The record is an 89-nucleotide RNA from Streptococcus pneumoniae, which matches "Glycine riboswitch aptamer" in Rfam. Rfam describes the family as follows. This family represents the bacterial glycine riboswitch. The organism belongs to Streptococcus pneumoniae, within Bacteria.
[Rfam]
RNA sequence: GGACGGAACUCUGGAGAGACCGUAAAGGCACCGAAGGGGCAAGGCAGGCAACUGCUCAAACUCUCAGGUAAAAGGACAGAGCUAGGAUA
Numbered sequence: 001g002g003a004c005g006g007a008a009c010u011c012u013g014g015a016g017a018g019a020c021c022g023u024a025a026a027g028g029c030a031c032c033g034a035a036g037g038g039g040c041a042a043g044g045c046a047g048g049c050a051a052c053u054g055c056u057c058a059a060a061c062u063c064u065c066a067g068g069u070a071a072a073a074g075g076a077c078a079g080a081g082c083u084a085g086g087a088u089a
Stems, first nucleotide, its partner, number of pairs: 007083001009081005020028002030069003033065002037063003043056002